[Rfam]
Description:
The family of this 56-nucleotide sequence from Altererythrobacter lutimaris is "terC RNA". The match comes from Rfam's covariance-model search (59 bits). Pairs were carried over by alignment from the consensus structure, which is taken from published work. Taxonomically the source falls in Altererythrobacter (Bacteria, Pseudomonadati, Pseudomonadota, Erythrobacteraceae).
RNA sequence: UCGCGGGACCGGGCCCCUCUGGCGCGCUGCAAAGCGCGUGAUGUCGGACCGCACUG
Numbered sequence: 001u002c003g004c005g006g007g008a009c010c011g012g013g014c015c016c017c018u019c020u021g022g023c024g025c026g027c028u029g030c031a032a033a034g035c036g037c038g039u040g041a042u043g044u045c046g047g048a049c050c051g052c053a054c055u056g
Base pairs, nucleotide, nucleotide: 006050007049009047010046011045012044022039023038024037025036026035027034028033